[Rfam]
RNA sequence: UAUGACACUAUGAGAUUGUGCCACAUCAUCACUUGAAAAUUAAAAAUAAUACAUAAAAAUUUAGGUGAUGAUGUGGUACAAUUUUAGAGUGUCAC
Numbered sequence: 001u002a003u004g005a006c007a008c009u010a011u012g013a014g015a016u017u018g019u020g021c022c023a024c025a026u027c028a029u030c031a032c033u034u035g036a037a038a039a040u041u042a043a044a045a046a047u048a049a050u051a052c053a054u055a056a057a058a059a060u061u062u063a064g065g066u067g068a069u070g071a072u073g074u075g076g077u078a079c080a081a082u083u084u085u086a087g088a089g090u091g092u093c094a095c
Base pairs, nucleotide, nucleotide: 003094004093005092006091007090008089009088012085013084014083015082016081017080018079019078020077021076022075023074024073025072026071027070028069029068030067031066032065033064034063035062036061037060040057041056
RNA: MIR8675 microRNA precursor family
Organism: Gossypium klotzschianum